[Rfam]
RNA: Plant signal recognition particle RNA
Organism: Camellia sinensis
RNA sequence: GUUGGGCUUGGUAACGUGAACCUGUGACUCAAGUGAGGGCAUUAUUAUGGCUGAAAGUUAGUCUAGCUCAACAGGCUGGUUCUAAUGGGGUUGCUUACUGGUCUGCCUAUUCCAAGUAAGGAGUUGAACCGUGGGCCAUAAGCGAAGGCUUGAGGCUCUCGUUUCCUGGAGUGGAGGGCACAGCGCUAGGCUGGUUUCACAGAGCAGCGAAUCCCUCCCGCUCUUGUCGGUGGAAGGAUUACAGGCCGGUGCUUCCUCAGGUCCGCUAAUGUCUGAUAGGCCGUUCUCAAUAUAACAGUCACUUUU
Numbered sequence: 001g002u003u004g005g006g007c008u009u010g011g012u013a014a015c016g017u018g019a020a021c022c023u024g025u026g027a028c029u030c031a032a033g034u035g036a037g038g039g040c041a042u043u044a045u046u047a048u049g050g051c052u053g054a055a056a057g058u059u060a061g062u063c064u065a066g067c068u069c070a071a072c073a074g075g076c077u078g079g080u081u082c083u084a085a086u087g088g089g090g091u092u093g094c095u096u097a098c099u100g101g102u103c104u105g106c107c108u109a110u111u112c113c114a115a116g117u118a119a120g121g122a123g124u125u126g127a128a129c130c131g132u133g134g135g136c137c138a139u140a141a142g143c144g145a146a147g148g149c150u151u152g153a154g155g156c157u158c159u160c161g162u163u164u165c166c167u168g169g170a171g172u173g174g175a176g177g178g179c180a181c182a183g184c185g186c187u188a189g190g191c192u193g194g195u196u197u198c199a200c201a202g203a204g205c206a207g208c209g210a211a212u213c214c215c216u217c218c219c220g221c222u223c224u225u226g227u228c229g230g231u232g233g234a235a236g237g238a239u240u241a242c243a244g245g246c247c248g249g250u251g252c253u254u255c256c257u258c259a260g261g262u263c264c265g266c267u268a269a270u271g272u273c274u275g276a277u278a279g280g281c282c283g284u285u286c287u288c289a290a291u292a293u294a295a296c297a298g299u300c301a302c303u304u305u306u
Stems, first nucleotide, its partner, number of pairs: 001040003004023003008019003028037003044305001048301006056293001058290002061286001064283001066281001068279001070277001072275005078264002081261003085257001087256001088254003092251002098249008107237002110235005116228001119225006126165003130161002133158005139152005166171001173218006184209003191202003